[Rfam]
RNA sequence: GGUUGGUCCGAGUGCAGUGGUAUUUACAACUAAUUGAUCACAACCAGUUGCAGAUUCCUUUGUUCCUUCUUCACUCCCACUGCUAUACUUCACUGGCCUUAA
Dot-bracket structure: (((((((..((..(.(((((.......(((.((.........................)).)))............)))))....)..)).)))))))....

About this RNA:
This 102-nucleotide sequence from Prolemur simus belongs to the Rfam family "Y RNA". The source organism's lineage runs through Eukaryota, Eumetazoa, Bilateria, Theria and Prolemur. Rfam classes the family as a non-coding RNA gene. A search with the family's covariance model found it, with a score of 67 bits.